The family of this 132-nucleotide RNA from Amphibalanus amphitrite is "mir-999 microRNA precursor family". The match comes from Rfam's covariance-model search (58 bits).

RNA sequence: CUCGUUUACCCAGACACAGUCCUGCAGGAAAAUUUCACUUUUUUCCCAUAGGAAAGUUUUUAUUUUCCCGUAAAAACUUUCCUAUGGGGAAAAAGUGAAAUUUUCCUGCAGGACUGUGUCUGGGUAAACGAG
Numbered sequence: 001c002u003c004g005u006u007u008a009c010c011c012a013g014a015c016a017c018a019g020u021c022c023u024g025c026a027g028g029a030a031a032a033u034u035u036c037a038c039u040u041u042u043u044u045c046c047c048a049u050a051g052g053a054a055a056g057u058u059u060u061u062a063u064u065u066u067c068c069c070g071u072a073a074a075a076a077c078u079u080u081c082c083u084a085u086g087g088g089g090a091a092a093a094a095g096u097g098a099a100a101u102u103u104u105c106c107u108g109c110a111g112g113a114c115u116g117u118g119u120c121u122g123g124g125u126a127a128a129c130g131a132g
Stems, first nucleotide, its partner, number of pairs: 003130009013120009023110006030103034